osmY RNA: a 72-nucleotide sequence. It is annotated as a small RNA.
[Rfam]
RNA sequence: GCAGCAGCGCCGUUUGCUGCUGUUGCGCCCACGGUUGUGGGUGAGCUCACUGACAGAAGGAAGAUAUCGAUG
Numbered sequence: 001g002c003a004g005c006a007g008c009g010c011c012g013u014u015u016g017c018u019g020c021u022g023u024u025g026c027g028c029c030c031a032c033g034g035u036u037g038u039g040g041g042u043g044a045g046c047u048c049a050c051u052g053a054c055a056g057a058a059g060g061a062a063g064a065u066a067u068c069g070a071u072g
Stems, first nucleotide, its partner, number of pairs: 002022008026043006
Dot-bracket structure: .((((((((.....))))))))...((((((......)))))).............................